[Rfam]
mir-2060 microRNA precursor family: a 90-nucleotide sequence from Branchiostoma floridae.
Pairs were carried over by alignment from the consensus structure, which was predicted with RNAalifold.
A search with the family's covariance model found it, with a score of 57 bits.
Rfam links the family to the GO terms RISC complex and miRNA-mediated post-transcriptional gene silencing.
Lineage of the source: Eukaryota > Metazoa > Bilateria > Cephalochordata > Branchiostoma.

Nucleotides: 090
Stems, first nucleotide, its partner, number of pairs: 002081001004078005016070001018068005024062005030056001032050001034048004
Number, partner (000 for none) and nucleotide at each position: 001000a002081u003000u004078u005077u006076u007075g008074u009000g010000u011000g012000u013000g014000g015000a016070u017000a018068g019067u020066g021065u022064u023000a024062a025061g026060c027059a028058c029000c030056a031000g032050g033000g034048a035047c036046a037045g038000c039000u040000c041000a042000u043000g044000u045037c046036u047035g048034u049000g050032u051000g052000u053000g054000g055000a056030u057000a058028g059027u060026g061025u062024u063000u064022a065021g066020u067019a068018c069000c070016a071000g072000g073000g074008a075007c076006a077005g078004g079000u080000c081002a082000u083000g084000u085000u086000u087000g088000u089000g090000u